[Rfam]
RNA: A. fumigatus sRNA Afu_309
Organism: Exserohilum turcicum
RNA sequence: AACCUUCUCUCAACCACCGCCCUGGGCCAAAAUCUCCCAGCCACUGCUCAGAGGGCUUGCUCUCUGUAGCGGUGUUUGUUGGUUGUAGAUUCUGGCAGCUCGUCCAUCAUGGAGCCAUCUCUCUUUUCCCGGUAGAUUGCUUCGGACGACAGGCGCGAAGAACAACUUUGGCAGCAUCCGGCAGCCUGAGCUCACCGCAAGGUUUGAGCUCGGUGUAAGGGUGUCUGCCAGGCAGACUGAUUCCGUUUCCCUUAUGCUAGGCCGUCGGCCAUUGAUGCUUGGGACUAACCCAGUCGGCUACAUGC
Numbered sequence: 001a002a003c004c005u006u007c008u009c010u011c012a013a014c015c016a017c018c019g020c021c022c023u024g025g026g027c028c029a030a031a032a033u034c035u036c037c038c039a040g041c042c043a044c045u046g047c048u049c050a051g052a053g054g055g056c057u058u059g060c061u062c063u064c065u066g067u068a069g070c071g072g073u074g075u076u077u078g079u080u081g082g083u084u085g086u087a088g089a090u091u092c093u094g095g096c097a098g099c100u101c102g103u104c105c106a107u108c109a110u111g112g113a114g115c116c117a118u119c120u121c122u123c124u125u126u127u128c129c130c131g132g133u134a135g136a137u138u139g140c141u142u143c144g145g146a147c148g149a150c151a152g153g154c155g156c157g158a159a160g161a162a163c164a165a166c167u168u169u170g171g172c173a174g175c176a177u178c179c180g181g182c183a184g185c186c187u188g189a190g191c192u193c194a195c196c197g198c199a200a201g202g203u204u205u206g207a208g209c210u211c212g213g214u215g216u217a218a219g220g221g222u223g224u225c226u227g228c229c230a231g232g233c234a235g236a237c238u239g240a241u242u243c244c245g246u247u248u249c250c251c252u253u254a255u256g257c258u259a260g261g262c263c264g265u266c267g268g269c270c271a272u273u274g275a276u277g278c279u280u281g282g283g284a285c286u287a288a289c290c291c292a293g294u295c296g297g298c299u300a301c302a303u304g305c
Base pairs, nucleotide, nucleotide: 018157019156020155021153022152023151024150026096027095028094029093031091033089034088035087036085037082038081039080040079041078043075044072045071046070047069049066050065051064052063053062054061055060104148107145108144111137114133115132116131168227170225174224175223176222182215183214185212188211189210190209191208192207193206195202196201232298233297235295236294237293238292239291248284249283250282251281256278257277260270261269262268263267